[Rfam]
RNA sequence: UGACGGGGACCCGCACAAGCAGUGGAGUAUGUGGUUUAAUUCGAAGCAACGCGAAGAACCUUACCAGGUCUUGACAUCCCUCUGACAGGUGAAGCUGGGCACUCUAGGAUGACUGCCGGUGACAAACCGGAGGAAGGUGGGGAUGACGUCAAAUCAUCAUGCCCCUUAUGACCUGGGCUACACACGUACUACAAUGGCCGAUACAACGGGAAGCGAAACCGCGAGGUGGAGCCAAUCCUAUCAAAGUCGGUCUCAGUUCGGAUUGCAGGCUGCAACUCGCCUGCAUGAAGUCGGAAUUGCUAGUAAUCGCGGAUCAGCAUGCCGCGGUGAAUACGUUCCCGGGUCUUGUACACACCGCCCGUCACACCACGAGAGUUUACAACACCCGAAGCCGGUGGGGUAACCGCAAGGAGCCAGCCGUCGAAGGUGGGGUAGAUGAUUGGGGUGAAGUCGUAACAAGGUAGCCGUAUCGGAAGGUGCGGCUGGAUCACCUCCUUU
Numbered sequence: 001u002g003a004c005g006g007g008g009a010c011c012c013g014c015a016c017a018a019g020c021a022g023u024g025g026a027g028u029a030u031g032u033g034g035u036u037u038a039a040u041u042c043g044a045a046g047c048a049a050c051g052c053g054a055a056g057a058a059c060c061u062u063a064c065c066a067g068g069u070c071u072u073g074a075c076a077u078c079c080c081u082c083u084g085a086c087a088g089g090u091g092a093a094g095c096u097g098g099g100c101a102c103u104c105u106a107g108g109a110u111g112a113c114u115g116c117c118g119g120u121g122a123c124a125a126a127c128c129g130g131a132g133g134a135a136g137g138u139g140g141g142g143a144u145g146a147c148g149u150c151a152a153a154u155c156a157u158c159a160u161g162c163c164c165c166u167u168a169u170g171a172c173c174u175g176g177g178c179u180a181c182a183c184a185c186g187u188a189c190u191a192c193a194a195u196g197g198c199c200g201a202u203a204c205a206a207c208g209g210g211a212a213g214c215g216a217a218a219c220c221g222c223g224a225g226g227u228g229g230a231g232c233c234a235a236u237c238c239u240a241u242c243a244a245a246g247u248c249g250g251u252c253u254c255a256g257u258u259c260g261g262a263u264u265g266c267a268g269g270c271u272g273c274a275a276c277u278c279g280c281c282u283g284c285a286u287g288a289a290g291u292c293g294g295a296a297u298u299g300c301u302a303g304u305a306a307u308c309g310c311g312g313a314u315c316a317g318c319a320u321g322c323c324g325c326g327g328u329g330a331a332u333a334c335g336u337u338c339c340c341g342g343g344u345c346u347u348g349u350a351c352a353c354a355c356c357g358c359c360c361g362u363c364a365c366a367c368c369a370c371g372a373g374a375g376u377u378u379a380c381a382a383c384a385c386c387c388g389a390a391g392c393c394g395g396u397g398g399g400g401u402a403a404c405c406g407c408a409a410g411g412a413g414c415c416a417g418c419c420g421u422c423g424a425a426g427g428u429g430g431g432g433u434a435g436a437u438g439a440u441u442g443g444g445g446u447g448a449a450g451u452c453g454u455a456a457c458a459a460g461g462u463a464g465c466c467g468u469a470u471c472g473g474a475a476g477g478u479g480c481g482g483c484u485g486g487a488u489c490a491c492c493u494c495c496u497u498u
Stems, first nucleotide, its partner, number of pairs: 001352002003349003007346007015336002019300005024192001026190008034181002040055004064176007077085002088165002091163001094160001096159002098150003102142004113133002116130005196252007208239003213232002218227003259290001264285007306328007355460001357457001360453002365447004370442003375437006383429004391422001393420004399415003404411002462485010

A member of the RNA family "Bacterial small subunit ribosomal RNA" from Paenibacillus sp. Leaf72, 498 nucleotides of a longer RNA. A reference for the family is Cannone et al. (2002), "The comparative RNA web (CRW) site: an online database of comparative sequence and structure information for ribosomal, intron, and other RNAs", BMC Bioinformatics. The match comes from Rfam's covariance-model search (1387 bits). The family's consensus secondary structure is taken from published work.